MISL RNA: a 744-nucleotide RNA sequence.
The family's RNA type in Rfam is small RNA.
RNA sequence: GGAUACUCCCGGGAAACCGGGGAAAGGUCGGAUUCUUUCCGGAGAAUUCAGCUCCUUUGUUAAAGUGGCCUCGGCUGUUUUAACGAAGGCAGGUUCACCCCGUCCGGUGCGGAAGUUCGCGCUUCCGUGAAACGCGAAAAUCGGACGGUGGCCACAAGUCGCAUCGCAAAGCCGCGGCAAGUGGAGUUAGCGAGAGGAGGCUGGGUUUUGGCUUCCUUAAGCAAUCGGUCACCUAGAAGGUGUGGUCGUUACCGUGAAAUUCCGGAUAGGUUCGAGGCCGCGGGCACUGACAUGAGUGCUUGUAGUCAAAGCUCUUCGGAGCGGAGGCUGCUGAACGCGACCCCGAAUGAAAUCGUGAAACUUCGCCGUCGGGCGAAGGAAAGCGAAGGUUCGAUCGGAAACCGAAAGGCGGAAGAUCGAGUUGUCGAAAAAUGACCUGAGAGCUAAGGCGAGACCCGUAGAUCAGGGCGAAGCCUACACGGGCAACCGUGGAGACGAGUCCUGUGAAAACGGGGAGGUUGUCAGAGACAACGAGAACCUCCCCCGGUGGUUUGAAGGAGCGCCGUAAGGCGAUCCGACGCUCUGCCGAGAAGCCUUGCUUGAAAUCGUCGACGCAUCGACGACGGUCCUGCCAUGAGACCGUAACGAGGACAUGUCGCCUCGAGUGGCGUCGGGGAGCCGACAGCUUGCCCCAAGGAUAAGCGCCUAAUGUCGGUACCCGGGAACGAGCGUGUGGCGAACGCC
Number, nucleotide and partner (000 for none) at each position: 001g000002g000003a000004u000005a000006c000007u000008c021009c020010c019011g018012g017013g000014a000015a000016a000017c012018c011019g010020g009021g008022g000023a000024a000025a000026g053027g052028u051029c000030g049031g048032a047033u046034u045035c044036u043037u042038u000039c000040c000041g000042g037043a036044g035045a034046a033047u032048u031049c030050a000051g028052c027053u026054c000055c000056u000057u000058u000059g000060u000061u000062a081063a080064a079065g078066u077067g076068g000069c000070c000071u000072c000073g000074g000075c000076u067077g066078u065079u064080u063081u062082a000083a000084c000085g000086a000087a000088g000089g000090c000091a000092g000093g000094u000095u000096c000097a000098c000099c000100c148101c147102g146103u145104c144105c143106g142107g000108u000109g000110c000111g126112g125113a124114a123115g122116u000117u137118c136119g135120c134121g133122c115123u114124u113125c112126c111127g000128u000129g000130a000131a000132a000133c121134g120135c119136g118137a117138a000139a000140a000141u000142c106143g105144g104145a103146c102147g101148g100149u000150g000151g000152c184153c183154a182155c181156a000157a000158g178159u177160c176161g175162c174163a000164u000165c000166g000167c000168a209169a208170a207171g206172c205173c204174g162175c161176g160177g159178c158179a000180a000181g155182u154183g153184g152185a000186g000187u000188u000189a000190g000191c000192g000193a000194g218195a217196g216197g215198a214199g213200g212201c211202u000203g000204g173205g172206u171207u170208u169209u168210g000211g201212c200213u199214u198215c197216c196217u195218u194219a000220a000221g000222c000223a000224a000225u000226c254227g253228g252229u000230c242231a241232c240233c239234u000235a000236g000237a000238a000239g233240g232241u231242g230243u000244g437245g436246u435247c434248g433249u432250u000251a000252c228253c227254g226255u000256g000257a000258a000259a000260u000261u000262c000263c000264g000265g000266a000267u000268a000269g000270g000271u000272u000273c000274g000275a000276g307277g306278c305279c000280g303281c302282g301283g300284g299285c298286a297287c296288u295289g000290a000291c000292a000293u000294g000295a288296g287297u286298g285299c284300u283301u282302g281303u280304a000305g278306u277307c276308a000309a000310a000311g000312c000313u327314c326315u325316u324317c323318g000319g000320a000321g000322c000323g317324g316325a315326g314327g313328c000329u000330g000331c000332u000333g000334a000335a000336c000337g000338c000339g000340a000341c000342c000343c000344c000345g000346a000347a000348u000349g000350a000351a000352a000353u386354c385355g384356u000357g000358a000359a000360a000361c378362u377363u376364c375365g374366c373367c372368g000369u000370c000371g000372g367373g366374c365375g364376a363377a362378g361379g000380a000381a000382a000383g000384c355385g354386a353387a000388g000389g000390u000391u000392c000393g000394a000395u405396c404397g403398g402399a000400a000401a000402c398403c397404g396405a395406a000407a000408g000409g000410c000411g000412g000413a000414a000415g000416a000417u000418c000419g000420a000421g000422u000423u000424g000425u000426c000427g000428a000429a000430a000431a000432a249433u248434g247435a246436c245437c244438u000439g000440a000441g601442a600443g599444c000445u000446a597447a596448g595449g594450c000451g000452a000453g000454a000455c000456c000457c000458g000459u000460a000461g000462a000463u000464c504465a503466g502467g501468g500469c000470g000471a000472a000473g000474c000475c494476u493477a000478c491479a490480c489481g488482g487483g000484c000485a000486a000487c482488c481489g480490u479491g478492g000493a476494g475495a000496c000497g000498a000499g000500u468501c467502c466503u465504g464505u000506g000507a000508a000509a000510a000511c000512g000513g000514g542515g541516a540517g539518g538519u537520u536521g000522u534523c533524a000525g000526a000527g000528a000529c000530a000531a000532c000533g523534a522535g000536a520537a519538c518539c517540u516541c515542c514543c000544c000545c000546g000547g586548u585549g584550g583551u000552u000553u580554g579555a000556a000557g576558g575559a574560g000561c572562g571563c570564c569565g000566u000567a000568a000569g564570g563571c562572g561573a000574u559575c558576c557577g000578a000579c554580g553581c000582u000583c550584u549585g548586c547587c000588g000589a000590g000591a000592a000593g000594c449595c448596u447597u446598g000599c443600u442601u441602g000603a000604a000605a000606u623607c622608g621609u620610c619611g618612a617613c000614g000615c000616a000617u612618c611619g610620a609621c608622g607623a606624c642625g641626g640627u639628c638629c000630u000631g669632c668633c667634a666635u000636g000637a000638g628639a627640c626641c625642g624643u000644a000645a000646c663647g662648a661649g660650g659651a000652c000653a000654u000655g000656u000657c000658g000659c650660c649661u648662c647663g646664a000665g000666u634667g633668g632669c631670g000671u000672c000673g000674g000675g000676g000677a000678g716679c715680c714681g713682a712683c711684a710685g703686c702687u000688u000689g000690c697691c696692c000693c000694a000695a000696g691697g690698a000699u000700a000701a000702g686703c685704g000705c000706c000707u000708a000709a000710u684711g683712u682713c681714g680715g679716u678717a000718c000719c000720c000721g000722g000723g000724a000725a000726c000727g000728a000729g743730c742731g741732u000733g000734u000735g000736g000737c000738g000739a000740a000741c731742g730743c729744c000